[Rfam]
Shown here is a 124-nucleotide sequence from Nelumbo nucifera, a member of the family "Small nucleolar RNA snoR111". The family's RNA type in Rfam is H/ACA-box small nucleolar RNA. The match comes from Rfam's covariance-model search (82 bits). Lineage of the source: Eukaryota > Embryophyta > Tracheophyta > Mesangiospermae > Nelumbo. The base pairs follow the family's consensus structure, which was predicted with WAR. Its family is annotated with nucleolus and RNA processing in the Gene Ontology. A reference for the family is Marker et al. (2002), "Experimental RNomics: identification of 140 candidates for small non-messenger RNAs in the plant Arabidopsis thaliana", Curr Biol.
RNA sequence: CAGAGAAUGAGAGGCGUUCCACGGUUGUCUCUCGUUGAACGAAAGCGGAGGAACAAUAACCAGGCGAGAUAUCGUUUCAGUCGCCGUUUUAUAGAUUGGCGAUUCGAUUGUUGCUCGUCGACAU
Dot-bracket structure: .....(((((((((((.........)))))))))))...........................(((((..((((.....(((((((.((....)).))))))).)))).....)))).).....